[Rfam]
RNA sequence: CGAGGGCGUCCCGGCGUGGAUGCCGUCAGGCUGCGGCCCUGAUGCACCUUCCCCGGUAUCAGGUCCGCAACCUGACGGCAUCCGCCCGGGCAACGAUUCGGGG
Numbered sequence: 001c002g003a004g005g006g007c008g009u010c011c012c013g014g015c016g017u018g019g020a021u022g023c024c025g026u027c028a029g030g031c032u033g034c035g036g037c038c039c040u041g042a043u044g045c046a047c048c049u050u051c052c053c054c055g056g057u058a059u060c061a062g063g064u065c066c067g068c069a070a071c072c073u074g075a076c077g078g079c080a081u082c083c084g085c086c087c088g089g090g091c092a093a094c095g096a097u098u099c100g101g102g103g
Stems, first nucleotide, its partner, number of pairs: 010090005018083002021080010032069005038063008

This 103-nucleotide RNA sequence from Prauserella muralis belongs to the Rfam family "mraW RNA".